[Rfam]
RNA sequence: GAGUUACUGCUGCGUGGCGAGGUUAACCCGUGUGUGGGGUAGCCGGAGCGAAAGCGAGUCUGAAGAGGGCGUUAGAGUCGCGUGGUGUAGACCCGAAGCGGAGUGAUCUACCCAUGGCCAGGGUGAAGCGCGGGUAAGACCGUGUGGAGGCCCGAACCCACCAGGGUUGAAAACCUGGGGGAUGAGUUGUGGGUAGGGGUGAAAGGCCAAUCAAACUCCGUGAUAGCUGGUU
Numbered sequence: 001g002a003g004u005u006a007c008u009g010c011u012g013c014g015u016g017g018c019g020a021g022g023u024u025a026a027c028c029c030g031u032g033u034g035u036g037g038g039g040u041a042g043c044c045g046g047a048g049c050g051a052a053a054g055c056g057a058g059u060c061u062g063a064a065g066a067g068g069g070c071g072u073u074a075g076a077g078u079c080g081c082g083u084g085g086u087g088u089a090g091a092c093c094c095g096a097a098g099c100g101g102a103g104u105g106a107u108c109u110a111c112c113c114a115u116g117g118c119c120a121g122g123g124u125g126a127a128g129c130g131c132g133g134g135u136a137a138g139a140c141c142g143u144g145u146g147g148a149g150g151c152c153c154g155a156a157c158c159c160a161c162c163a164g165g166g167u168u169g170a171a172a173a174c175c176u177g178g179g180g181g182a183u184g185a186g187u188u189g190u191g192g193g194u195a196g197g198g199g200u201g202a203a204a205g206g207c208c209a210a211u212c213a214a215a216c217u218c219c220g221u222g223a224u225a226g227c228u229g230g231u232u
Base pairs, nucleotide, nucleotide: 005089006088007087009086010085011084012083013082014081015080016079017078018077021044022043023042024041027038028037029036048055049054058070059069060068061067092230093229095227099220100219101218102217103216104215108196109195110194111193112192113191114190115189116188117187118186119184121153122152123151124150128145129144130143131142132141133140157181158180159179161178162177163176164175165174198208199207200206
A member of the RNA family "Bacterial large subunit ribosomal RNA" from Saccharopolyspora elongata, 232 nucleotides of a longer RNA. The organism belongs to Saccharopolyspora, within Bacteria. On this family, see Cannone et al., BMC Bioinformatics 2002: "The comparative RNA web (CRW) site: an online database of comparative sequence and structure information for ribosomal, intron, and other RNAs". Rfam links the family to the GO terms structural constituent of ribosome and ribosome.